RNA sequence: GCGCCAAGUAGAGGUGCGUCCUGGAUGAGUCGCCGGGGGGAAGGUGAUGCUGUGGAUCCCCGGUAAAAGGCCAGUGCGCCGAAGUGAAGCCGACAUCAAGCGGUUUUGCUGGUGUCGUGGGCGAAAGUCGCGGCACUGCCAUAGUCCUAAACACUAUGGAGCGCUACCGAAGGC
Numbered sequence: 001g002c003g004c005c006a007a008g009u010a011g012a013g014g015u016g017c018g019u020c021c022u023g024g025a026u027g028a029g030u031c032g033c034c035g036g037g038g039g040g041a042a043g044g045u046g047a048u049g050c051u052g053u054g055g056a057u058c059c060c061c062g063g064u065a066a067a068a069g070g071c072c073a074g075u076g077c078g079c080c081g082a083a084g085u086g087a088a089g090c091c092g093a094c095a096u097c098a099a100g101c102g103g104u105u106u107u108g109c110u111g112g113u114g115u116c117g118u119g120g121g122c123g124a125a126a127g128u129c130g131c132g133g134c135a136c137u138g139c140c141a142u143a144g145u146c147c148u149a150a151a152c153a154c155u156a157u158g159g160a161g162c163g164c165u166a167c168c169g170a171a172g173g174c
Stems, first nucleotide, its partner, number of pairs: 008167004016079004021074004032064008083110010094100001111137010139159007
RNA: Lysine riboswitch aptamer
Organism: Gallaecimonas xiamenensis